[Rfam]
RNA sequence: CGCUGCAUGUUGGGAGAACGGGUGACACCGUACCGAAGGAGCAACCGCCCCGGGAAACUCUCAGGUAAACGGACCUUCAUGCGGCC
Numbered sequence: 001c002g003c004u005g006c007a008u009g010u011u012g013g014g015a016g017a018a019c020g021g022g023u024g025a026c027a028c029c030g031u032a033c034c035g036a037a038g039g040a041g042c043a044a045c046c047g048c049c050c051c052g053g054g055a056a057a058c059u060c061u062c063a064g065g066u067a068a069a070c071g072g073a074c075c076u077u078c079a080u081g082c083g084g085c086c
Base pairs, nucleotide, nucleotide: 006081007080008079009078012075013074019030020029021028032066033065034064035062036061039060040059041058045053046052
Dot-bracket structure: .....((((..((.....(((......))).(((((..(((...((.....))....))))).))).......))..)))).....
Shown here is an 86-nucleotide RNA from Celeribacter neptunius, a member of the family "Glycine riboswitch aptamer". A search with the family's covariance model found it, with a score of 52 bits. The base pairs follow the family's consensus structure. From the family's description: This family represents the bacterial glycine riboswitch. The organism belongs to Celeribacter, within Bacteria.